[Rfam]
RNA sequence: UUCUUUGAUAAUUAGAUAAAUGAACCAUAUGAUAGACAAGAAGACAAUCUUGUAUGGGGAUAUCUUAUGCUUAUUAUUUAAUAGUGCGAACUUUUAAAGGAUUGAGUUGGUUUAGUAGUAAUACUAAACUAGGAAUUACAAAGUAAUAAAAAAGAUAUUAGCAAUACUAUUAUAGGGUUAUAAGGCACAGUCCUAAUCGUAGUCAUCAUAAACUUUCUUCGUAGAAAAGAAGAAGAUUAACUUUAAAAUUUAUUAGAGUGGCAUCUAAAGAAUUUUAAAGAAUGCCAAUAAGCUAUUUGCAGUUGACACAUAGUGAUAUGUUAUAAGAUUAGAAACUGGUUAAAGUAGUGCAAAUCUGCAAGAAAAUAGAUGGUUGUCGCGGUUCGAUUCCGUAAAAUAUAUGCUUUAAUAUAUUCCUAAGUGCAUGAAAUUUGGAAGUGCAAGUCUUCUUUAGUGGUUGUAGGUAAUUGAAGAAUAGAGGUCGCUCCUCUAUGAGGGCAAUUACUGGCUAGUGGCUGAAAGAAAAAAUAAUUUUGUAAUAGUUAUUAAUGUGAGAAACAUCAUUUAUCUAAUUAUCAAA
Numbered sequence: 001u002u003c004u005u006u007g008a009u010a011a012u013u014a015g016a017u018a019a020a021u022g023a024a025c026c027a028u029a030u031g032a033u034a035g036a037c038a039a040g041a042a043g044a045c046a047a048u049c050u051u052g053u054a055u056g057g058g059g060a061u062a063u064c065u066u067a068u069g070c071u072u073a074u075u076a077u078u079u080a081a082u083a084g085u086g087c088g089a090a091c092u093u094u095u096a097a098a099g100g101a102u103u104g105a106g107u108u109g110g111u112u113u114a115g116u117a118g119u120a121a122u123a124c125u126a127a128a129c130u131a132g133g134a135a136u137u138a139c140a141a142a143g144u145a146a147u148a149a150a151a152a153a154g155a156u157a158u159u160a161g162c163a164a165u166a167c168u169a170u171u172a173u174a175g176g177g178u179u180a181u182a183a184g185g186c187a188c189a190g191u192c193c194u195a196a197u198c199g200u201a202g203u204c205a206u207c208a209u210a211a212a213c214u215u216u217c218u219u220c221g222u223a224g225a226a227a228a229g230a231a232g233a234a235g236a237u238u239a240a241c242u243u244u245a246a247a248a249u250u251u252a253u254u255a256g257a258g259u260g261g262c263a264u265c266u267a268a269a270g271a272a273u274u275u276u277a278a279a280g281a282a283u284g285c286c287a288a289u290a291a292g293c294u295a296u297u298u299g300c301a302g303u304u305g306a307c308a309c310a311u312a313g314u315g316a317u318a319u320g321u322u323a324u325a326a327g328a329u330u331a332g333a334a335a336c337u338g339g340u341u342a343a344a345g346u347a348g349u350g351c352a353a354a355u356c357u358g359c360a361a362g363a364a365a366a367u368a369g370a371u372g373g374u375u376g377u378c379g380c381g382g383u384u385c386g387a388u389u390c391c392g393u394a395a396a397a398u399a400u401a402u403g404c405u406u407u408a409a410u411a412u413a414u415u416c417c418u419a420a421g422u423g424c425a426u427g428a429a430a431u432u433u434g435g436a437a438g439u440g441c442a443a444g445u446c447u448u449c450u451u452u453a454g455u456g457g458u459u460g461u462a463g464g465u466a467a468u469u470g471a472a473g474a475a476u477a478g479a480g481g482u483c484g485c486u487c488c489u490c491u492a493u494g495a496g497g498g499c500a501a502u503u504a505c506u507g508g509c510u511a512g513u514g515g516c517u518g519a520a521a522g523a524a525a526a527a528a529u530a531a532u533u534u535u536g537u538a539a540u541a542g543u544u545a546u547u548a549a550u551g552u553g554a555g556a557a558a559c560a561u562c563a564u565u566u567a568u569c570u571a572a573u574u575a576u577c578a579a580a
Base pairs, nucleotide, nucleotide: 007577008576009575010574011573012572013571014570015569016568017567018566019565020564021563022562025057026056027055028054029053037052038051039050040049041048060158061157062156063155064154070106071105072104073102074101075100077098078097079096080095081094083092084091085090107132108131109130110129111128112127113126114125115124116123117122135147136146137145138144139143168541169540170539171538172537173536178527179526181524185517188338189337190336191335193332194331195330196329197328198327199296200295201294202293204292217235218234219233220232241280242279243278244277245276246275251270253268254267255266256265257264259287260286261285262284298361302357308321309320310319311318312317342431348426349425350424351423352422415497416496418494435450437448438447452511453510454509464505465504466503467502468501469500470499473493476492477491478490479489480488481487549561550560551559552558
RNA: ROOL RNA
Organism: Mycoplasma sp. CAG:776